[Rfam]
RNA: Y RNA
RNA sequence: GGCUGGUCCAAGUGCAGUGGUAUUUACAACUAAUUGUUCACAGCCAGUUACAGAUUGUUUCUUCUCCACUCCCAACUGCUUCACUUGACUAGCCUUAA
Numbered sequence: 001g002g003c004u005g006g007u008c009c010a011a012g013u014g015c016a017g018u019g020g021u022a023u024u025u026a027c028a029a030c031u032a033a034u035u036g037u038u039c040a041c042a043g044c045c046a047g048u049u050a051c052a053g054a055u056u057g058u059u060u061c062u063u064c065u066c067c068a069c070u071c072c073c074a075a076c077u078g079c080u081u082c083a084c085u086u087g088a089c090u091a092g093c094c095u096u097a098a
Stems, first nucleotide, its partner, number of pairs: 001094008010086002014082001016077003019073002028059003032055001